[Rfam]
A member of the RNA family "c-di-GMP-I-GGC riboswitch aptamer" from Desulforamulus profundi, 86 nucleotides long. The family has 40 seed sequences and 1,298 matches in Rfam 15.1. Its Rfam clan is "c-di-GMP_I riboswitch clan". The base pairs follow the family's consensus structure, which is taken from published work. Lineage of the source: Bacteria > Bacillati > Clostridia > Peptococcaceae > Desulforamulus.
RNA sequence: UGUGAUAAAGGCAAACCAUCCGAAAGGUUGGGACGCAAAGCCAUGGGUCUGUAGCCCUUGUGGGUAUGACUGCCAGGCUGCCGCUA
Numbered sequence: 001u002g003u004g005a006u007a008a009a010g011g012c013a014a015a016c017c018a019u020c021c022g023a024a025a026g027g028u029u030g031g032g033a034c035g036c037a038a039a040g041c042c043a044u045g046g047g048u049c050u051g052u053a054g055c056c057c058u059u060g061u062g063g064g065u066a067u068g069a070c071u072g073c074c075a076g077g078c079u080g081c082c083g084c085u086a
Base pairs, nucleotide, nucleotide: 001086003083004082011036012035016031017030018029020027021026034072039079040078041077042076044075045074046073047070048069049068